RNA sequence: UUGGGAACAGCACGGCCGCAAAUCUGACUUCGCCCACUGGGGGCUUGGGAUUGCGGAAGUGU
Numbered sequence: 001u002u003g004g005g006a007a008c009a010g011c012a013c014g015g016c017c018g019c020a021a022a023u024c025u026g027a028c029u030u031c032g033c034c035c036a037c038u039g040g041g042g043g044c045u046u047g048g049g050a051u052u053g054c055g056g057a058a059g060u061g062u
Stems, first nucleotide, its partner, number of pairs: 010062004016056006024049002032044004
Overview: Rfam assigns this 62-nucleotide RNA sequence from Halolamina salifodinae to the family "S15-Halobacteria ribosomal protein leader". The organism belongs to Halolamina, within Archaea. The base pairs follow the family's consensus structure, which is taken from published work. On this family, see Eckert and Weinberg, BMC Microbiol 2020: "Discovery of 20 novel ribosomal leader candidates in bacteria and archaea".